[Rfam]
RNA sequence: UCGUCGAUCAUUUUUGUGAAUUAGCAAUUUUAAGAAUGAAAUAAUUGCAUAGUCACAAAAGUGAUGGAGGG
Numbered sequence: 001u002c003g004u005c006g007a008u009c010a011u012u013u014u015u016g017u018g019a020a021u022u023a024g025c026a027a028u029u030u031u032a033a034g035a036a037u038g039a040a041a042u043a044a045u046u047g048c049a050u051a052g053u054c055a056c057a058a059a060a061g062u063g064a065u066g067g068a069g070g071g
Stems, first nucleotide, its partner, number of pairs: 002070001004068002008064012024048006
Dot-bracket structure: .(.((..((((((((((((....((((((.............))))))....))))))))))))..)).).

A member of the RNA family "mir-153 microRNA precursor family" from Thelazia callipaeda, 71 nucleotides long. Rfam links the family to the GO terms RISC complex and miRNA-mediated post-transcriptional gene silencing. The organism belongs to Thelazia, within Eukaryota. The literature on the family includes a 2009 paper in Mol Reprod Dev by Tesfaye et al., "Identification and expression profiling of microRNAs during bovine oocyte maturation using heterologous approach". The base pairs follow the family's consensus structure, which was predicted with RNAalifold.